RNA: 7SK RNA
Organism: Fukomys damarensis
RNA sequence: GGAUGUGAGGGCGAUCUGGCUGUGACAUCUGUCACCCCAUUGUAAGCCAAGGUUGAUUCAGCUGCUCUGGCUGGCUAGGCUGGUGUCCCCUUCCUCCCUCGCUGCUCCAUGUGCAUCCCUCCCAAAGCUGUGCGCUCUGUCGAAGAGGACGACCAACCCCGAUAAAGGAGGACUGUUUCCUCAGUCAAGGGUAUAUGAGUAGCUGCGCUCCCCUGCUAGAACCUCCAAACAAGCUCUCAAGGUCCAUAUUUUCUUGGAGGAGGACAGUCUAGUCCCUAGCAUACCUUAUCCACUCUAAGAGUGCUCCCUCUUUG
Numbered sequence: 001g002g003a004u005g006u007g008a009g010g011g012c013g014a015u016c017u018g019g020c021u022g023u024g025a026c027a028u029c030u031g032u033c034a035c036c037c038c039a040u041u042g043u044a045a046g047c048c049a050a051g052g053u054u055g056a057u058u059c060a061g062c063u064g065c066u067c068u069g070g071c072u073g074g075c076u077a078g079g080c081u082g083g084u085g086u087c088c089c090c091u092u093c094c095u096c097c098c099u100c101g102c103u104g105c106u107c108c109a110u111g112u113g114c115a116u117c118c119c120u121c122c123c124a125a126a127g128c129u130g131u132g133c134g135c136u137c138u139g140u141c142g143a144a145g146a147g148g149a150c151g152a153c154c155a156a157c158c159c160c161g162a163u164a165a166a167g168g169a170g171g172a173c174u175g176u177u178u179c180c181u182c183a184g185u186c187a188a189g190g191g192u193a194u195a196u197g198a199g200u201a202g203c204u205g206c207g208c209u210c211c212c213c214u215g216c217u218a219g220a221a222c223c224u225c226c227a228a229a230c231a232a233g234c235u236c237u238c239a240a241g242g243u244c245c246a247u248a249u250u251u252u253c254u255u256g257g258a259g260g261a262g263g264a265c266a267g268u269c270u271a272g273u274c275c276c277u278a279g280c281a282u283a284c285c286u287u288a289u290c291c292a293c294u295c296u297a298a299g300a301g302u303g304c305u306c307c308c309u310c311u312u313u314g
Stems, first nucleotide, its partner, number of pairs: 001108003005102007013093002018090002024087006031080003035074002037070003042067001046062002116171002118168003122139001125136001127135002140162003147158002202273003208267002212263003216259001224258003229254001231252003